Shown here is a 113-nucleotide sequence from Lysobacter antibioticus, a member of the family "Xanthomonadaceae sRNA sX13". Rfam classes the family as a small RNA. Taxonomically the source falls in Lysobacter (Bacteria, Pseudomonadati, Gammaproteobacteria, Lysobacterales).
RNA sequence: AACGUCUGUCGCUGAUCUCUCCCUCCCCUGGAGUGAUCCCCCGGAGCGAACGACCCCUCCCCAGGUCACGCUCCACCAGCCCCGCCGGCCCCCCCUGCCUGCGGGGCUUUUUA
Numbered sequence: 001a002a003c004g005u006c007u008g009u010c011g012c013u014g015a016u017c018u019c020u021c022c023c024u025c026c027c028c029u030g031g032a033g034u035g036a037u038c039c040c041c042c043g044g045a046g047c048g049a050a051c052g053a054c055c056c057c058u059c060c061c062c063a064g065g066u067c068a069c070g071c072u073c074c075a076c077c078a079g080c081c082c083c084g085c086c087g088g089c090c091c092c093c094c095c096u097g098c099c100u101g102c103g104g105g106g107c108u109u110u111u112u113a
Stems, first nucleotide, its partner, number of pairs: 004012001006011001014038004019033004044074001046072001052067004078108008087099003